[Rfam]
Nucleotides: 087
Stems, first nucleotide, its partner, number of pairs: 015074004020069003027062002032058003036054002
Number, partner (000 for none) and nucleotide at each position: 001000a002000g003000g004000c005000u006000g007000a008000a009000a010000g011000c012000a013000a014000a015074a016073a017072g018071g019000a020069g021068g022067c023000a024000a025000a026000g027062u028061u029000c030000a031000u032058g033057a034056u035000u036054g037053u038000c039000g040000a041000a042000a043000g044000a045000c046000a047000a048000g049000g050000a051000a052000u053037a054036c055000u056034g057033u058032c059000a060000u061028g062027g063000a064000a065000u066000u067022g068021c069020u070000c071018u072017c073016u074015u075000g076000a077000u078000g079000c080000u081000c082000u083000u084000u085000g086000c087000a